[Rfam]
RNA sequence: GCGGCAAUAGUCUAGUGGAAGGACAGGGGCUUCCCAAGCCUCUAACCCGGGUUCGAACCCCGGUUGCCGCA
Number, nucleotide and partner (000 for none) at each position: 001g070002c069003g068004g067005c066006a065007a064008u000009a000010g024011u023012c022013u021014a000015g000016u000017g000018g000019a000020a000021g013022g012023a011024c010025a000026g042027g041028g040029g039030c038031u000032u000033c000034c000035c000036a000037a000038g030039c029040c028041u027042c026043u000044a000045a000046c000047c063048c062049g061050g060051g059052u000053u000054c000055g000056a000057a000058c000059c051060c050061c049062g048063g047064u007065u006066g005067c004068c003069g002070c001071a000
Shown here is a 71-nucleotide RNA from a Methanomicrobia archaeon, a member of the family "tRNA".
The family's RNA type in Rfam is transfer RNA.
The literature on the family includes a 1993 paper in Trends Biochem Sci by Hou, "The tertiary structure of tRNA and the development of the genetic code".